Rfam assigns this 65-nucleotide RNA sequence from Ictidomys tridecemlineatus to the family "MAT2A 3'UTR stem loop F". The source organism's lineage runs through Eukaryota, Metazoa, Tetrapoda, Marmotini and Ictidomys. Rfam classes the family as a cis-regulatory element. Rfam 15.1 lists 403 matches to the family in 255 species. For this family Rfam cites "New families of human regulatory RNA structures identified by comparative analysis of vertebrate genomes" (Parker et al., Genome Res, 2011). The base pairs follow the family's consensus structure, which is taken from published work.
[Rfam]
RNA sequence: AAUGGAGAAAGAUGACUUGGCUGGUGUGGUACAGAGAAUCCAGCUCUAUUACAUGUUACUCCAUU
Numbered sequence: 001a002a003u004g005g006a007g008a009a010a011g012a013u014g015a016c017u018u019g020g021c022u023g024g025u026g027u028g029g030u031a032c033a034g035a036g037a038a039u040c041c042a043g044c045u046c047u048a049u050u051a052c053a054u055g056u057u058a059c060u061c062c063a064u065u
Stems, first nucleotide, its partner, number of pairs: 001065007009057002014049001019045006026032002
Dot-bracket structure: (((((((.((...(....((((((.((...)).......))))))...)......)).)))))))